RNA: MIR6217 microRNA precursor family
Organism: Miscanthus lutarioriparius
RNA sequence: UUACUACAAAAUAACUUAUGGUAAAUAGCCAUUUUGAGUUAUGCUAAUUACUAUGUUAAUUUACGAGAUUAUAGUAACUCCUUACUAAGCGUUUUACUAUAAUAUUAUGGUAAAUAUCCCCAUGUGUUAUAGUAACCCAACUAUCAUAAAUAUGUAUUGACAUUAUCGUAAAUUAGUAUAUAAAAUUAUCGUAAAUGGAAGUGGCUACAGAAUAACUUAUUUUAUAGCUG
Numbered sequence: 001u002u003a004c005u006a007c008a009a010a011a012u013a014a015c016u017u018a019u020g021g022u023a024a025a026u027a028g029c030c031a032u033u034u035u036g037a038g039u040u041a042u043g044c045u046a047a048u049u050a051c052u053a054u055g056u057u058a059a060u061u062u063a064c065g066a067g068a069u070u071a072u073a074g075u076a077a078c079u080c081c082u083u084a085c086u087a088a089g090c091g092u093u094u095u096a097c098u099a100u101a102a103u104a105u106u107a108u109g110g111u112a113a114a115u116a117u118c119c120c121c122a123u124g125u126g127u128u129a130u131a132g133u134a135a136c137c138c139a140a141c142u143a144u145c146a147u148a149a150a151u152a153u154g155u156a157u158u159g160a161c162a163u164u165a166u167c168g169u170a171a172a173u174u175a176g177u178a179u180a181u182a183a184a185a186u187u188a189u190c191g192u193a194a195a196u197g198g199a200a201g202u203g204g205c206u207a208c209a210g211a212a213u214a215a216c217u218u219a220u221u222u223u224a225u226a227g228c229u230g
Stems, first nucleotide, its partner, number of pairs: 001230001004227003008223007016215004022209001026207010039194005045188005052180013067167003071163002076157001082149003089144001091142001093140002095134011109119002